This 58-nucleotide RNA sequence from Cnuibacter physcomitrellae belongs to the Rfam family "msiK RNA". Lineage of the source: Bacteria > Bacillati > Actinomycetota > Actinomycetes > Cnuibacter.

[Rfam]
RNA sequence: CCUGAUCAUCCAUUCACUACGGAUCGUCCGGCACGUACCUGCCGGUGAAGGAGAAAUC
Numbered sequence: 001c002c003u004g005a006u007c008a009u010c011c012a013u014u015c016a017c018u019a020c021g022g023a024u025c026g027u028c029c030g031g032c033a034c035g036u037a038c039c040u041g042c043c044g045g046u047g048a049a050g051g052a053g054a055a056a057u058c
Stems, first nucleotide, its partner, number of pairs: 010051002013049004028045006